[Rfam]
RNA sequence: GGCAUGGGGAUCCGCGACCUCCCCACGAGGCGUCAGCUGAAGAUCGCGUUCCAUUCCCGACCGAUUUCUUCCGAGGAGGAACGCAUAUG
Dot-bracket structure: ....((((((.........))))))....................((((((...........................)))))).....
Numbered sequence: 001g002g003c004a005u006g007g008g009g010a011u012c013c014g015c016g017a018c019c020u021c022c023c024c025a026c027g028a029g030g031c032g033u034c035a036g037c038u039g040a041a042g043a044u045c046g047c048g049u050u051c052c053a054u055u056c057c058c059g060a061c062c063g064a065u066u067u068c069u070u071c072c073g074a075g076g077a078g079g080a081a082c083g084c085a086u087a088u089g
Stems, first nucleotide, its partner, number of pairs: 005025006046084006